A member of the RNA family "Bacillaceae-1 RNA" from Rummeliibacillus sp. TYF005, 65 nucleotides long.
Lineage of the source: Bacteria > Bacillati > Caryophanales > Caryophanaceae > Rummeliibacillus.
The base pairs follow the family's consensus structure, which is taken from published work.
It scores 54 bits against the family's covariance model.
It is annotated as a small RNA.
The family has 95 seed sequences and 5,721 matches in Rfam 15.1.
RNA sequence: UGGGGAUGAAGCCAACUAAAAACGCCACGUCCUGUGGCAACGUUGGCAUUAGUACGUCCUGCACG
Numbered sequence: 001u002g003g004g005g006a007u008g009a010a011g012c013c014a015a016c017u018a019a020a021a022a023c024g025c026c027a028c029g030u031c032c033u034g035u036g037g038c039a040a041c042g043u044u045g046g047c048a049u050u051a052g053u054a055c056g057u058c059c060u061g062c063a064c065g
Base pairs, nucleotide, nucleotide: 011047012046013045014044015043016042024038025037026036027035028034052064053063055061